[Rfam]
This 102-nucleotide RNA sequence from Clostridiales bacterium PH28_bin88 belongs to the Rfam family "Purine riboswitch aptamer".
A search with the family's covariance model found it, with a score of 74 bits.
NCBI's taxonomy places the organism under Bacteria, Bacillati, Bacillota, Clostridia, Eubacteriales.
The base pairs follow the family's consensus structure, which is taken from published work.
Rfam describes the family as follows. Riboswitches are metabolite binding domains within certain messenger RNAs that serve as precision sensors for their corresponding targets.
RNA sequence: CAUAGACUGAUUUCAGCUUUUCGUAUAUCCCCGAUAAUACGGUUCGGGAGUCUCUACCAGGUAACCGCAAAUUACCCGGCUACGAAAAGGGCGUUGGAUGUG
Number, nucleotide and partner (000 for none) at each position: 001c000002a000003u000004a000005g000006a000007c000008u000009g000010a000011u000012u000013u000014c000015a000016g000017c000018u088019u087020u086021u085022c084023g083024u082025a081026u000027a000028u000029c000030c048031c047032c046033g045034a044035u000036a000037a000038u000039a000040c000041g000042g000043u000044u034045c033046g032047g031048g030049a000050g000051u000052c000053u000054c000055u000056a000057c000058c078059a000060g076061g075062u074063a073064a072065c000066c000067g000068c000069a000070a000071a000072u064073u063074a062075c061076c060077c000078g058079g000080c000081u025082a024083c023084g022085a021086a020087a019088a018089g000090g000091g000092c000093g000094u000095u000096g000097g000098a000099u000100g000101u000102g000